A member of the RNA family "mir-399 microRNA precursor family" from Sorghum bicolor, 113 nucleotides long. A search with the family's covariance model found it, with a score of 71 bits. About the family: mir-399 was identified in both Arabidopsis thaliana and Oryza sativa computationally and was later experimentally verified. mir-399 is thought to target mRNAs coding for a phosphatase transporter. The mature sequence is excised from the 3' arm of the hairpin. Lineage of the source: Eukaryota > Streptophyta > Embryophyta > Poales > Sorghum. Rfam links the family to the GO terms miRNA-mediated post-transcriptional gene silencing and RISC complex. On this family, see Jones-Rhoades and Bartel, Mol Cell 2004: "Computational Identification of Plant MicroRNAs and Their Targets, Including a Stress-Induced miRNA".
RNA sequence: GUAAGAAUCACAGUGCGGUUCUCCUCUGGCAUGGAGGCCAACAUAGCAGGCAUUGGAGAAUGCACAGCGCUAUCGCCAUCCCUGCCAAAGGAGAAUUGCCCUGCCAUUCGGUA
Numbered sequence: 001g002u003a004a005g006a007a008u009c010a011c012a013g014u015g016c017g018g019u020u021c022u023c024c025u026c027u028g029g030c031a032u033g034g035a036g037g038c039c040a041a042c043a044u045a046g047c048a049g050g051c052a053u054u055g056g057a058g059a060a061u062g063c064a065c066a067g068c069g070c071u072a073u074c075g076c077c078a079u080c081c082c083u084g085c086c087a088a089a090g091g092a093g094a095a096u097u098g099c100c101c102u103g104c105c106a107u108u109c110g111g112u113a
Base pairs, nucleotide, nucleotide: 005109006108007107008106011103012102013101015099016098017097018096019095021093022092023091024090027087028086029085030084031083033081034080035079